The record is a 67-nucleotide sequence from Trichinella patagoniensis, which matches "Selenocysteine insertion sequence 1" in Rfam.
[Rfam]
RNA sequence: GAUGUGAGCUGUGACAAACAUUGCAUAAACCAUUUCUAUGCGUGGCAAUGUUUCGAUGACAUACAUC
Numbered sequence: 001g002a003u004g005u006g007a008g009c010u011g012u013g014a015c016a017a018a019c020a021u022u023g024c025a026u027a028a029a030c031c032a033u034u035u036c037u038a039u040g041c042g043u044g045g046c047a048a049u050g051u052u053u054c055g056a057u058g059a060c061a062u063a064c065a066u067c
Stems, first nucleotide, its partner, number of pairs: 001067005016053009031040003
Record summary
Rfam classes the family as a cis-regulatory element. Lineage of the source: Eukaryota > Metazoa > Bilateria > Trichinellidae > Trichinella. A search with the family's covariance model found it, with a score of 36 bits. Rfam describes the family as follows. The incorporation of selenocysteine into a protein sequence is directed by an in-frame UGA codon (usually a stop codon) within the coding region of the mRNA. Selenoprotein mRNAs contain a conserved secondary structure in the 3' UTR that is required for the distinction of UGA stop from UGA selenocysteine. The selenocysteine insertion sequence (SECIS) is around 60 nt in length and adopts a hairpin structure which is sufficiently well-defined and conserved to act as a computational screen for selenoprotein genes. The base pairs follow the family's consensus structure, which is taken from published work.